A member of the RNA family "Exoribonuclease-resistant RNA (xrRNA) plant-infecting virus (class 3)" from Polerovirus CLDV, 52 nucleotides long. The base pairs follow the family's consensus structure, which is taken from published work. The organism belongs to Polerovirus CLDV, within Viruses. Gene Ontology term of the family: viral RNA genome replication. It is annotated as a cis-regulatory element. From the family's description: Exoribonuclease-resistant RNA (xrRNA) plant-infecting virus (class 3) is a ncRNA that was reported in Plant viruses. For this family Rfam cites "The pseudoknot structure of a viral RNA reveals a conserved mechanism for programmed exoribonuclease resistance" (Gezelle et al., bioRxiv [Preprint], 2024).
Nucleotides: 052
Base pairs, nucleotide, nucleotide: 008032009031011030012027013026015049016048017047018046019045
Number, partner (000 for none) and nucleotide at each position: 001000u002000a003000g004000c005000u006000a007000g008032c009031u010000c011030u012027u013026a014000a015049u016048c017047u018046u019045g020000u021000u022000g023000c024000g025000a026013u027012a028000g029000a030011g031009a032008g033000a034000a035000g036000c037000u038000u039000a040000u041000c042000a043000g044000u045019c046018a047017a048016g049015a050000u051000c052000a